[Rfam]
RNA sequence: AUGGGUUCAACAGGAGUGACCUGAGAUCACAUGAGGGUGCACCCAAGUGCACUAGCAAUGUGUUCUCAGGUCGCCCCUGCUGGACCUCC
Numbered sequence: 001a002u003g004g005g006u007u008c009a010a011c012a013g014g015a016g017u018g019a020c021c022u023g024a025g026a027u028c029a030c031a032u033g034a035g036g037g038u039g040c041a042c043c044c045a046a047g048u049g050c051a052c053u054a055g056c057a058a059u060g061u062g063u064u065c066u067c068a069g070g071u072c073g074c075c076c077c078u079g080c081u082g083g084a085c086c087u088c089c
Base pairs, nucleotide, nucleotide: 007083008082011079012078013077014076016074017073018072019071023067024066025065026064028062029061030060031059032058
MIR398 microRNA precursor family: an 89-nucleotide RNA sequence from Actinidia chinensis. It scores 67 bits against the family's covariance model. Rfam 15.1 lists 627 matches to the family in 211 species.